A member of the RNA family "SAM-V (S-adenosyl methionine) riboswitch aptamer" from Candidatus Pelagibacter communis, 64 nucleotides long. Rfam describes the family as follows. SAM-V riboswitch is a cis-regulatory element that was recognised in marine bacteria it recognise S-adenosylmethione (SAM). The binding of SAM leads to the association of the triplex third strand in the aptamer of SAM-V riboswitch that stabilizes a short helix and occludes the ribosome binding site. The base pairs follow the family's consensus structure, which is taken from published work.
RNA sequence: AAUUGGUAAAGGUAGUUGAACUGUAUUGUGCACCUUGCAUAGAGCUAAAGCACUAAAAAAGUAA
Numbered sequence: 001a002a003u004u005g006g007u008a009a010a011g012g013u014a015g016u017u018g019a020a021c022u023g024u025a026u027u028g029u030g031c032a033c034c035u036u037g038c039a040u041a042g043a044g045c046u047a048a049a050g051c052a053c054u055a056a057a058a059a060a061g062u063a064a
Stems, first nucleotide, its partner, number of pairs: 010035004026056002028053004037045002
Dot-bracket structure: .........((((............[[[[[[)))).((.....))....]]]].]]........

Annotation: Rfam links the family to the GO terms regulation of gene expression and S-adenosylmethionine metabolic process. On this family, see Poiata et al., RNA 2009: "A variant riboswitch aptamer class for S-adenosylmethionine common in marine bacteria". The organism belongs to Candidatus Pelagibacter communis, within Bacteria.